The record is a 99-nucleotide sequence from Vineibacter terrae, which matches "rpsB sRNA" in Rfam.
It is annotated as a small RNA.
A reference for the family is Meyer et al. (2009), "Identification of candidate structured RNAs in the marine organism 'Candidatus Pelagibacter ubique'", BMC Genomics.
The source organism's lineage runs through Bacteria, Pseudomonadati, Alphaproteobacteria, Hyphomicrobiales and Vineibacter.
[Rfam]
RNA sequence: CGCACGCGGGGCUGCGGUCGGCGGGGAGAAAUCCCGCCGUUCGCUCCGGUGUCCGCAAGGACGACCCCCGCGGAGGCUCAACCGGAGAAGGUUAGAUGA
Numbered sequence: 001c002g003c004a005c006g007c008g009g010g011g012c013u014g015c016g017g018u019c020g021g022c023g024g025g026g027a028g029a030a031a032u033c034c035c036g037c038c039g040u041u042c043g044c045u046c047c048g049g050u051g052u053c054c055g056c057a058a059g060g061a062c063g064a065c066c067c068c069c070g071c072g073g074a075g076g077c078u079c080a081a082c083c084g085g086a087g088a089a090g091g092u093u094a095g096a097u098g099a
Base pairs, nucleotide, nucleotide: 001075003073005072006071007070008069009068010067014044015043022036023035025034051062052061053060054059